[Rfam]
RNA sequence: UUUCCUGAGGAGCGCUGCGACGGGUAGCGCGCCGGCCGCUAUGGCCCGCCCACCCGCUAGGCUCAGGAAGCGUUUCUCGAUUGAACGGCGCUCAUCAUUU
Numbered sequence: 001u002u003u004c005c006u007g008a009g010g011a012g013c014g015c016u017g018c019g020a021c022g023g024g025u026a027g028c029g030c031g032c033c034g035g036c037c038g039c040u041a042u043g044g045c046c047c048g049c050c051c052a053c054c055c056g057c058u059a060g061g062c063u064c065a066g067g068a069a070g071c072g073u074u075u076c077u078c079g080a081u082u083g084a085a086c087g088g089c090g091c092u093c094a095u096c097a098u099u100u
Stems, first nucleotide, its partner, number of pairs: 002069007021056005

Overview:
Rfam assigns this 100-nucleotide sequence from Candidimonas nitroreducens to the family "SAH (S-adenosyl-L-homocysteine) riboswitch aptamer". Taxonomically the source falls in Candidimonas (Bacteria, Pseudomonadati, Pseudomonadota, Alcaligenaceae).